[Rfam]
RNA sequence: UUUCAAGGUAGAGGUUGCAAAAGACAUUAUUAGAUAAUAGGAGUUUAGCAAGCAUAGAUUAUUAUUGAAAGGGAAUUUUGCCGAAAGGUUUAAAGAGCUAACUUUAGACACUUGGGAUUAUAGAGAACAUCUAUAAGACUGACAUUAGUUUACUAGUGUAGAGCUAUCAAUUAG
Number, nucleotide and partner (000 for none) at each position: 001u000002u000003u000004c000005a000006a000007g168008g167009u166010a165011g164012a000013g000014g000015u000016u000017g081018c080019a079020a078021a077022a076023g000024a000025c073026a000027u000028u000029a000030u000031u000032a000033g066034a065035u064036a063037a062038u061039a060040g059041g000042a000043g000044u000045u000046u000047a000048g000049c000050a000051a000052g000053c000054a000055u000056a000057g000058a000059u040060u039061a038062u037063u036064a035065u034066u033067g000068a000069a000070a000071g000072g000073g025074a000075a000076u022077u021078u020079u019080g018081c017082c000083g000084a000085a113086a112087g111088g109089u108090u107091u106092a105093a104094a103095g102096a000097g000098c000099u000100a000101a000102c095103u094104u093105u092106a091107g090108a089109c088110a000111c087112u086113u085114g140115g139116g000117a000118u136119u135120a134121u133122a132123g131124a130125g000126a000127a000128c000129a000130u124131c123132u122133a121134u120135a119136a118137g000138a000139c115140u114141g000142a159143c158144a157145u156146u155147a154148g153149u000150u000151u000152a000153c148154u147155a146156g145157u144158g143159u142160a000161g000162a000163g000164c011165u010166a009167u008168c007169a000170a000171u000172u000173a000174g000

Record summary: Rfam assigns this 174-nucleotide RNA from Fusobacterium sp. FSA-380-WT-3A to the family "Lysine riboswitch aptamer". Rfam links the family to the GO term lysine biosynthetic process. The base pairs follow the family's consensus structure, which is taken from published work. It scores 105 bits against the family's covariance model.